The family of this 90-nucleotide sequence from Nicotiana attenuata is "MIR6152 microRNA precursor family".
RNA sequence: UUGACAGAUUAUUGUAUUCGACUGUAUUCACGGCGUGAAACAGGGACUGUUUUUACACAGAAAGUGAAUCAAUUAACAUAAUAGGCUCCU
Numbered sequence: 001u002u003g004a005c006a007g008a009u010u011a012u013u014g015u016a017u018u019c020g021a022c023u024g025u026a027u028u029c030a031c032g033g034c035g036u037g038a039a040a041c042a043g044g045g046a047c048u049g050u051u052u053u054u055a056c057a058c059a060g061a062a063a064g065u066g067a068a069u070c071a072a073u074u075a076a077c078a079u080a081a082u083a084g085g086c087u088c089c090u
Stems, first nucleotide, its partner, number of pairs: 003088002009084007017076002020074002023071002026069006035058002037053007